[Rfam]
RNA sequence: UAGCAGUUGCGGCCUAGUUUAUAUAGCUUGUAUACGUAUAUGAAUGGAUAGUGUGGGGAACAUUUAAGAUUAGCCGGUGAGGCGCUCAGGAUUGCCGCCAUCCGAGUCUCACCGGUUGGCUUGA
Numbered sequence: 001u002a003g004c005a006g007u008u009g010c011g012g013c014c015u016a017g018u019u020u021a022u023a024u025a026g027c028u029u030g031u032a033u034a035c036g037u038a039u040a041u042g043a044a045u046g047g048a049u050a051g052u053g054u055g056g057g058g059a060a061c062a063u064u065u066a067a068g069a070u071u072a073g074c075c076g077g078u079g080a081g082g083c084g085c086u087c088a089g090g091a092u093u094g095c096c097g098c099c100a101u102c103c104g105a106g107u108c109u110c111a112c113c114g115g116u117u118g119g120c121u122u123g124a
Stems, first nucleotide, its partner, number of pairs: 009098005017045009051063004064124005070118001074115010089103004